[Rfam]
RNA sequence: UUAAAAUGCGGUGAUGGAGUUCACCGGAAACCCUGCUUGCGCAGUAAUGACUCCUACCAAUUU
Numbered sequence: 001u002u003a004a005a006a007u008g009c010g011g012u013g014a015u016g017g018a019g020u021u022c023a024c025c026g027g028a029a030a031c032c033c034u035g036c037u038u039g040c041g042c043a044g045u046a047a048u049g050a051c052u053c054c055u056a057c058c059a060a061u062u063u
Stems, first nucleotide, its partner, number of pairs: 010025004016054006033044004